Shown here is a 150-nucleotide RNA sequence, a member of the family "DUF2800 RNA".

[Rfam]
RNA sequence: GCGUCUCAGCGUUCAUCCCCUGAUCAAGGAUGCCCGAAGCGGUGAGACGGACAACAAUUGAAUAAAGUCAACCCAUCGGGACGGUUGGCCAGUUAAGAAGUGAGGAUUCAUUCUUAUGGCCAAUUAUGGGAAGUCCUGUGUGGAUUCUCA
Numbered sequence: 001g002c003g004u005c006u007c008a009g010c011g012u013u014c015a016u017c018c019c020c021u022g023a024u025c026a027a028g029g030a031u032g033c034c035c036g037a038a039g040c041g042g043u044g045a046g047a048c049g050g051a052c053a054a055c056a057a058u059u060g061a062a063u064a065a066a067g068u069c070a071a072c073c074c075a076u077c078g079g080g081a082c083g084g085u086u087g088g089c090c091a092g093u094u095a096a097g098a099a100g101u102g103a104g105g106a107u108u109c110a111u112u113c114u115u116a117u118g119g120c121c122a123a124u125u126a127u128g129g130g131a132a133g134u135c136c137u138g139u140g141u142g143g144a145u146u147c148u149c150a
Stems, first nucleotide, its partner, number of pairs: 002049004007044002010041004014032005033080005066146004071141002086122005099112005